[Rfam]
Shown here is a 116-nucleotide sequence from Mesorhizobium sp. L-8-10, a member of the family "Alphaproteobacterial ar15". A reference for the family is del Val et al. (2012), "A survey of sRNA families in alpha-proteobacteria", RNA Biol. The family is grouped with related families in Rfam's "suhB sRNA clan". Lineage of the source: Bacteria > Pseudomonadati > Alphaproteobacteria > Hyphomicrobiales > Mesorhizobium.

RNA sequence: AUCUCCUGGGCGCGUUUCUCCUCCCAUUGGCGCCCGGUGAGUGUUCCCCUCUGGAGGUUUUGCUUUAACAGGCACUUCCAACAAACUGGCCGGGUCUUCGUGAUCCGGCUUUUUUU
Numbered sequence: 001a002u003c004u005c006c007u008g009g010g011c012g013c014g015u016u017u018c019u020c021c022u023c024c025c026a027u028u029g030g031c032g033c034c035c036g037g038u039g040a041g042u043g044u045u046c047c048c049c050u051c052u053g054g055a056g057g058u059u060u061u062g063c064u065u066u067a068a069c070a071g072g073c074a075c076u077u078c079c080a081a082c083a084a085a086c087u088g089g090c091c092g093g094g095u096c097u098u099c100g101u102g103a104u105c106c107g108g109c110u111u112u113u114u115u116u
Base pairs, nucleotide, nucleotide: 001042003041004040005039007037009035012033013032014031015030052080053079054078055077056076057075058074088110089109090108091107092106093105094104095103096102